[Rfam]
RNA sequence: GGGCGUUCUGAAGACCUGCUUUCUAGGCCACGUGCUGAGGACACUCGUUCCUCCCGGGCCGAGCGCCCGCCUAGGGGAAAGUCCCCGGACCCCGGGCAGAAAGUGCCGCGCGCUACGGCGCGCUAUAACCUGUCCCGCCAGCUCCGCUAACACCGCCAAGACGCCCCCGGGCGGAGCGGGGAGCUGGGGUAAGGCGCCCGUCAGUCCCACAGGAACGCAGGUGGUGCCGCCCGGCCGCACCAACACAACGGGGCUCACUCUCAGAACGAC
Numbered sequence: 001g002g003g004c005g006u007u008c009u010g011a012a013g014a015c016c017u018g019c020u021u022u023c024u025a026g027g028c029c030a031c032g033u034g035c036u037g038a039g040g041a042c043a044c045u046c047g048u049u050c051c052u053c054c055c056g057g058g059c060c061g062a063g064c065g066c067c068c069g070c071c072u073a074g075g076g077g078a079a080a081g082u083c084c085c086c087g088g089a090c091c092c093c094g095g096g097c098a099g100a101a102a103g104u105g106c107c108g109c110g111c112g113c114u115a116c117g118g119c120g121c122g123c124u125a126u127a128a129c130c131u132g133u134c135c136c137g138c139c140a141g142c143u144c145c146g147c148u149a150a151c152a153c154c155g156c157c158a159a160g161a162c163g164c165c166c167c168c169g170g171g172c173g174g175a176g177c178g179g180g181g182a183g184c185u186g187g188g189g190u191a192a193g194g195c196g197c198c199c200g201u202c203a204g205u206c207c208c209a210c211a212g213g214a215a216c217g218c219a220g221g222u223g224g225u226g227c228c229g230c231c232c233g234g235c236c237g238c239a240c241c242a243a244c245a246c247a248a249c250g251g252g253g254c255u256c257a258c259u260c261u262c263a264g265a266a267c268g269a270c
Base pairs, nucleotide, nucleotide: 002270004268005267006266007265008264009263010262011261014222015221016220017219018218019217022075023074024073025072026071027070028069037053038052039051040050041049080255081254083253084252085251086250095107096106097105098104108123109122110121111120112119113118129194130193131192138188139187141184142183143182144181153179154178155177156176163172164171165170224240225239226238227237229235